[Rfam]
This 70-nucleotide RNA from Clostridium botulinum belongs to the Rfam family "RAGATH-18 RNA".
RNA sequence: UCCUUGGAGAGUUAUACCAAACUAGAGUAGAAUAAGGAAUCAUUCAAAAUAGAGCUUUAAGAAGAGGAAA
Numbered sequence: 001u002c003c004u005u006g007g008a009g010a011g012u013u014a015u016a017c018c019a020a021a022c023u024a025g026a027g028u029a030g031a032a033u034a035a036g037g038a039a040u041c042a043u044u045c046a047a048a049a050u051a052g053a054g055c056u057u058u059a060a061g062a063a064g065a066g067g068a069a070a
Base pairs, nucleotide, nucleotide: 001068002067003066004065005064009057010056011055012054013053022052023051024050030045031044032043
It is one of the family's seed sequences.